[Rfam]
RNA sequence: CUUUGUAUUCUUCCACAGCUUUCUUGAACUGCACCUAUUAGAUUAAUGUUGAUGUUGUUGUGCGAUAUGCCAUGACCAUAUGACAUUGUAUUCAUUUUUGCUGCGGUUCAAUAAAGCUGUGGGAAGAUACAAACA
Number, nucleotide and partner (000 for none) at each position: 001c000002u000003u132004u131005g130006u129007a128008u000009u000010c000011u000012u000013c122014c121015a120016c000017a118018g117019c116020u115021u114022u113023c000024u111025u110026g109027a108028a000029c106030u105031g104032c103033a102034c000035c000036u000037a000038u000039u000040a000041g000042a000043u000044u000045a000046a000047u000048g000049u000050u000051g000052a000053u000054g000055u000056u000057g000058u000059u000060g000061u000062g000063c000064g000065a000066u000067a000068u000069g000070c000071c000072a000073u000074g000075a000076c000077c000078a000079u000080a000081u000082g000083a000084c000085a000086u000087u000088g000089u000090a000091u000092u000093c000094a000095u000096u000097u000098u000099u000100g000101c000102u033103g032104c031105g030106g029107u000108u027109c026110a025111a024112u000113a022114a021115a020116g019117c018118u017119g000120u015121g014122g013123g000124a000125a000126g000127a000128u007129a006130c005131a004132a003133a000134c000135a000
Annotation: Rfam assigns this 135-nucleotide RNA sequence from Populus trichocarpa to the family "MIR396 microRNA precursor family". The literature on the family includes a 2005 paper in Plant Cell by Sunkar et al., "Cloning and characterization of microRNAs from rice".